msiK RNA: a 59-nucleotide RNA sequence from Nocardioides marinus. NCBI's taxonomy places the organism under Bacteria, Actinomycetota, Actinomycetes, Nocardioidaceae, Nocardioides. It scores 52 bits against the family's covariance model.
RNA sequence: GACACGCGUCACUUCACGACGGAUCGUCCGGCACGUGCCUGCCGGUGAAGGAGAUGGGA
Numbered sequence: 001g002a003c004a005c006g007c008g009u010c011a012c013u014u015c016a017c018g019a020c021g022g023a024u025c026g027u028c029c030g031g032c033a034c035g036u037g038c039c040u041g042c043c044g045g046u047g048a049a050g051g052a053g054a055u056g057g058g059a
Base pairs, nucleotide, nucleotide: 010051012050013049014048015047016046028045029044030043031042032041033040